[Rfam]
RNA sequence: GAUCAGAUGACCCUCAGUGGUCUGGGGUGCAGGCUUCAAACCUGCAGCUGUCUAGCAACGGAGUGGUUCAUUUCCACCUUUC
Numbered sequence: 001g002a003u004c005a006g007a008u009g010a011c012c013c014u015c016a017g018u019g020g021u022c023u024g025g026g027g028u029g030c031a032g033g034c035u036u037c038a039a040a041c042c043u044g045c046a047g048c049u050g051u052c053u054a055g056c057a058a059c060g061g062a063g064u065g066g067u068u069c070a071u072u073u074c075c076a077c078c079u080u081u082c
Stems, first nucleotide, its partner, number of pairs: 006081002009078001012027006028046006048061004063077004
The family of this 82-nucleotide RNA sequence from Chloroceryle aenea is "Selenocysteine transfer RNA". A search with the family's covariance model found it, with a score of 53 bits.